Overview
6S-Flavo RNA: a 107-nucleotide sequence from Flavobacterium beibuense. The base pairs follow the family's consensus structure, which is taken from published work.
[Rfam]
RNA sequence: ACUCAACACUAACAAAUUAAAAUGGGUGAAUCAUCGUUACUAAAGCAUGCUGCCCCGAGCAGAUCCUUGAACAGCGAGUUAGCUCAAAACUUGUCAUUCACGAGUUU
Numbered sequence: 001a002c003u004c005a006a007c008a009c010u011a012a013c014a015a016a017u018u019a020a021a022a023u024g025g026g027u028g029a030a031u032c033a034u035c036g037u038u039a040c041u042a043a044a045g046c047a048u049g050c051u052g053c054c055c056c057g058a059g060c061a062g063a064u065c066c067u068u069g070a071a072c073a074g075c076g077a078g079u080u081a082g083c084u085c086a087a088a089a090c091u092u093g094u095c096a097u098u099c100a101c102g103a104g105u106u107u
Base pairs, nucleotide, nucleotide: 023086024085025084026083027082034077035076036075037074038073043068044067045066050062051061052060053059